Shown here is a 177-nucleotide RNA, a member of the family "Group II catalytic intron D1-D4-3". The pairing is the family consensus, mapped onto this sequence.

[Rfam]
RNA sequence: UUCACCGUGAGGUGAAAUCUGAAGGAAGUCGUUGGCAAAUCUCUGGUCCGACGGACAGAAACCGCAUACAAGGCUAGGCUACGAGAGAUAAGUUGGCAUAAAGCAACGAAGUCUAAUAACUACCACAUUUGUGGUAGCAGAGUAAAUGCGGUGGAUGAAUAAAUUAAAGAUUGCAGU
Numbered sequence: 001u002u003c004a005c006c007g008u009g010a011g012g013u014g015a016a017a018u019c020u021g022a023a024g025g026a027a028g029u030c031g032u033u034g035g036c037a038a039a040u041c042u043c044u045g046g047u048c049c050g051a052c053g054g055a056c057a058g059a060a061a062c063c064g065c066a067u068a069c070a071a072g073g074c075u076a077g078g079c080u081a082c083g084a085g086a087g088a089u090a091a092g093u094u095g096g097c098a099u100a101a102a103g104c105a106a107c108g109a110a111g112u113c114u115a116a117u118a119a120c121u122a123c124c125a126c127a128u129u130u131g132u133g134g135u136a137g138c139a140g141a142g143u144a145a146a147u148g149c150g151g152u153g154g155a156u157g158a159a160u161a162a163a164u165u166a167a168a169g170a171u172u173g174c175a176g177u
Stems, first nucleotide, its partner, number of pairs: 001016006028177002031174002036169001042163001044161002046156005062151006073143003078135007086114004092107004
Gene Ontology term of the family: Group II intron splicing. The sequence is in the family's curated seed alignment.